[Rfam]
RNA: M-box riboswitch aptamer (ykoK leader)
RNA sequence: ACAUCAUUUCGGUAGGUGAGGUUACCACAGGGAUUGGAUGAUUCGGCUUAUGUCGUUAAAUCCGAAGAUUGCUACCGCGGAAUUGUGGAGACACGAUGAGCUGGUUAGCAGGCUGCGUCGCGAAGGCGCAACUUAAUGCAAUUUAUAUGCCCUGUGAUGCUAAAGCUUGAACGGUGCUAUUAUUU
Numbered sequence: 001a002c003a004u005c006a007u008u009u010c011g012g013u014a015g016g017u018g019a020g021g022u023u024a025c026c027a028c029a030g031g032g033a034u035u036g037g038a039u040g041a042u043u044c045g046g047c048u049u050a051u052g053u054c055g056u057u058a059a060a061u062c063c064g065a066a067g068a069u070u071g072c073u074a075c076c077g078c079g080g081a082a083u084u085g086u087g088g089a090g091a092c093a094c095g096a097u098g099a100g101c102u103g104g105u106u107a108g109c110a111g112g113c114u115g116c117g118u119c120g121c122g123a124a125g126g127c128g129c130a131a132c133u134u135a136a137u138g139c140a141a142u143u144u145a146u147a148u149g150c151c152c153u154g155u156g157a158u159g160c161u162a163a164a165g166c167u168u169g170a171a172c173g174g175u176g177c178u179a180u181u182a183u184u185u
Stems, first nucleotide, its partner, number of pairs: 006180002010176001011172001013124001015167003020161003026156007068142005075103001077101002084095004111133002114130001117127003